[Rfam]
RNA: Betaproteobacteria toxic small RNA
Organism: Pandoraea pnomenusa
RNA sequence: CGUCUCCUCCAUGUCUCCUCCUGAUAUGGAUUAAGCCCGCAAACACGCGGGCUUUCUUUU
Numbered sequence: 001c002g003u004c005u006c007c008u009c010c011a012u013g014u015c016u017c018c019u020c021c022u023g024a025u026a027u028g029g030a031u032u033a034a035g036c037c038c039g040c041a042a043a044c045a046c047g048c049g050g051g052c053u054u055u056c057u058u059u060u
Stems, first nucleotide, its partner, number of pairs: 008030008034053007